c-di-GMP-I riboswitch aptamer: an 83-nucleotide RNA sequence from Shewanella sp. SNU WT4. Rfam links the family to the GO term cyclic-di-GMP binding. About the family: GEMM was predicted in a large-scale screen for bacterial structured RNA regulatory elements.
RNA sequence: UAUAGAAAAAGGCAAACCAGUCGAAAGGCUGGGACGCAAAGCUUCCGGUCUAAGGGGAAACCUAAGAUAGCGGGGACGCCAAA
Dot-bracket structure: ...........((...((((((....))))))...))....((.((((((....((....))...)))..)))))........